[Rfam]
RNA sequence: UCGGCCGCGAGGCGGAAUCUGAAGGAAGCCGGAGGCAAAUGCACGGGCCAAGGUACACGAACCUAAUUUGAGGCAGUGUCAGUCGGAUGAGUCUCCAAGACAAGACGAAAUCCAAAGCCGCCAAGGGUUGAUGCUGUAAACUUAAGUGGUCACGGGCAGACAGAUGGCGUU
Numbered sequence: 001u002c003g004g005c006c007g008c009g010a011g012g013c014g015g016a017a018u019c020u021g022a023a024g025g026a027a028g029c030c031g032g033a034g035g036c037a038a039a040u041g042c043a044c045g046g047g048c049c050a051a052g053g054u055a056c057a058c059g060a061a062c063c064u065a066a067u068u069u070g071a072g073g074c075a076g077u078g079u080c081a082g083u084c085g086g087a088u089g090a091g092u093c094u095c096c097a098a099g100a101c102a103a104g105a106c107g108a109a110a111u112c113c114a115a116a117g118c119c120g121c122c123a124a125g126g127g128u129u130g131a132u133g134c135u136g137u138a139a140a141c142u143u144a145a146g147u148g149g150u151c152a153c154g155g156g157c158a159g160a161c162a163g164a165u166g167g168c169g170u171u
Base pairs, nucleotide, nucleotide: 001016002015004013005012006011028171030169031168036163040158041157042156044154045153046151047150048149049148050147062146064144065143066142067140073137074136075135077133078132079131080130081129082128083127085113086112087111088110091106092105093104094103